[Rfam]
RNA sequence: ACAUUCAUGCAGCCGAGAUCCGUUCGCGAGAACGGGUGCGGGGGACCCACUUCGGGGGCGUAUUCCGGCAAUGGCGCCGGAUAGAGGACUUUCAGCCUCGAGCCCGUCAGCUAACCUCGUAGGCAUCUGGAAGGGCACGA
Numbered sequence: 001a002c003a004u005u006c007a008u009g010c011a012g013c014c015g016a017g018a019u020c021c022g023u024u025c026g027c028g029a030g031a032a033c034g035g036g037u038g039c040g041g042g043g044g045a046c047c048c049a050c051u052u053c054g055g056g057g058g059c060g061u062a063u064u065c066c067g068g069c070a071a072u073g074g075c076g077c078c079g080g081a082u083a084g085a086g087g088a089c090u091u092u093c094a095g096c097c098u099c100g101a102g103c104c105c106g107u108c109a110g111c112u113a114a115c116c117u118c119g120u121a122g123g124c125a126u127c128u129g130g131a132a133g134g135g136c137a138c139g140a
Stems, first nucleotide, its partner, number of pairs: 012124003018037007038120006048055001056105003064081004084099004